[Rfam]
RNA sequence: CCUUGUUCUCGGGGCGGGGUGAAAGUCCCCACCGGCGGUGAAAGAGGGGUGUUAACGCAGUGCGACAACCCGCUCUUGCAGCCCGCGAGCGCGUUUGGAAGGUGGCUCAUGGUCUCUUUCGAACGGUCAGCAGAUCUGGUGCCAUUCCAGAGCCGACGGUAACAGUCCGGAUGAAAGAGAACGUGA
Numbered sequence: 001c002c003u004u005g006u007u008c009u010c011g012g013g014g015c016g017g018g019g020u021g022a023a024a025g026u027c028c029c030c031a032c033c034g035g036c037g038g039u040g041a042a043a044g045a046g047g048g049g050u051g052u053u054a055a056c057g058c059a060g061u062g063c064g065a066c067a068a069c070c071c072g073c074u075c076u077u078g079c080a081g082c083c084c085g086c087g088a089g090c091g092c093g094u095u096u097g098g099a100a101g102g103u104g105g106c107u108c109a110u111g112g113u114c115u116c117u118u119u120c121g122a123a124c125g126g127u128c129a130g131c132a133g134a135u136c137u138g139g140u141g142c143c144a145u146u147c148c149a150g151a152g153c154c155g156a157c158g159g160u161a162a163c164a165g166u167c168c169g170g171a172u173g174a175a176a177g178a179g180a181a182c183g184u185g186a
Stems, first nucleotide, its partner, number of pairs: 004183007017029003031166002033155002035086004089131002135151005157169003